[Rfam]
RNA: Drosophila small cajal body-specific RNA PsiU2-55
RNA sequence: GCUACAAGGUAGUAGAGUUUCCAGUUUAAGACACUGGCUGGUAACGCUUCAAGCCCUGUUAGAUUAAAAAACCACGCCCAAUUUACUACCAAUUUAGCGAUUGUCUUCGAAUGGGUGGUGCAAUGUAAAUGUUCGUUAUGAUUGUGUAGACUAAAUUUUAACUGCUGAUAGUUGCAUACAAAA
Numbered sequence: 001g002c003u004a005c006a007a008g009g010u011a012g013u014a015g016a017g018u019u020u021c022c023a024g025u026u027u028a029a030g031a032c033a034c035u036g037g038c039u040g041g042u043a044a045c046g047c048u049u050c051a052a053g054c055c056c057u058g059u060u061a062g063a064u065u066a067a068a069a070a071a072c073c074a075c076g077c078c079c080a081a082u083u084u085a086c087u088a089c090c091a092a093u094u095u096a097g098c099g100a101u102u103g104u105c106u107u108c109g110a111a112u113g114g115g116u117g118g119u120g121c122a123a124u125g126u127a128a129a130u131g132u133u134c135g136u137u138a139u140g141a142u143u144g145u146g147u148a149g150a151c152u153a154a155a156u157u158u159u160a161a162c163u164g165c166u167g168a169u170a171g172u173u174g175c176a177u178a179c180a181a182a183a
Base pairs, nucleotide, nucleotide: 004059005058006057008055009054010053012050014048017045018044019043021041022040023039027036028035075117076116077115078114079113083109085107088104089103119176120175121174122173123172124171127169131165132164135162136161138159140157141156142155143154